RNA sequence: UGAGUCCUGCGAUGUACGUGUCCGCCGGGAUGUUUUGAGCCAACACCCGAACAUAGGGAAUCUGUGUCACCCAUUGCGCGAGGAUGCCCCUUUGGGGGGACCUUCAGACAUGGGUGCAGGAUACCCACCUGCUGAGAGCAGGUUCAAAACAAACGGAGCACGGCAUAACGGGGCUCUU
Numbered sequence: 001u002g003a004g005u006c007c008u009g010c011g012a013u014g015u016a017c018g019u020g021u022c023c024g025c026c027g028g029g030a031u032g033u034u035u036u037g038a039g040c041c042a043a044c045a046c047c048c049g050a051a052c053a054u055a056g057g058g059a060a061u062c063u064g065u066g067u068c069a070c071c072c073a074u075u076g077c078g079c080g081a082g083g084a085u086g087c088c089c090c091u092u093u094g095g096g097g098g099g100a101c102c103u104u105c106a107g108a109c110a111u112g113g114g115u116g117c118a119g120g121a122u123a124c125c126c127a128c129c130u131g132c133u134g135a136g137a138g139c140a141g142g143u144u145c146a147a148a149a150c151a152a153a154c155g156g157a158g159c160a161c162g163g164c165a166u167a168a169c170g171g172g173g174c175u176c177u178u
Base pairs, nucleotide, nucleotide: 002176003175004174005173006172007171008170009169012166013165014164015163017162018161019160031151032150033149034148036146037145038144039143040142041141056126057125058124060122061121062120063119068116069115070114071113072112073111074110080104081103087099088098089097090096